[Rfam]
A member of the RNA family "DUF3800-VIII RNA" from Pseudovibrio axinellae, 65 nucleotides long. From the family's description: Bacteroidetes, Cyanobacteria, Firmicutes, Planctomycetes (1 example), Proteobacteria, Tenericutes (1 example). The family's consensus secondary structure is taken from published work. Rfam classes the family as a small RNA.
RNA sequence: UCCUCUCUGCACACGUUGAAGGUUCUGGUUCCACCAGGAGUAUUUGUAGGCGUGUGCGGAGGCCC
Numbered sequence: 001u002c003c004u005c006u007c008u009g010c011a012c013a014c015g016u017u018g019a020a021g022g023u024u025c026u027g028g029u030u031c032c033a034c035c036a037g038g039a040g041u042a043u044u045u046g047u048a049g050g051c052g053u054g055u056g057c058g059g060a061g062g063c064c065c
Stems, first nucleotide, its partner, number of pairs: 004062010015051003021041001023039007